[Rfam]
A member of the RNA family "Glycine riboswitch aptamer" from Dermacoccus nishinomiyaensis, 96 nucleotides long. Rfam's curators write: This family represents the bacterial glycine riboswitch. The match comes from Rfam's covariance-model search (58 bits). Clan: Glycine riboswitch clan. The base pairs follow the family's consensus structure.

RNA sequence: UCGAACCUGGCGGGAGAGACCUGUUGCCGCGAGCACGGGCGCCGAAGGGGCAAGCCUCCCCGCAACCUCUCAGGCGAAGUGGACCGUCCAGGUGAA
Numbered sequence: 001u002c003g004a005a006c007c008u009g010g011c012g013g014g015a016g017a018g019a020c021c022u023g024u025u026g027c028c029g030c031g032a033g034c035a036c037g038g039g040c041g042c043c044g045a046a047g048g049g050g051c052a053a054g055c056c057u058c059c060c061c062g063c064a065a066c067c068u069c070u071c072a073g074g075c076g077a078a079g080u081g082g083a084c085c086g087u088c089c090a091g092g093u094g095a096a
Stems, first nucleotide, its partner, number of pairs: 006091001009088005020039004041075003044071002048069003054063002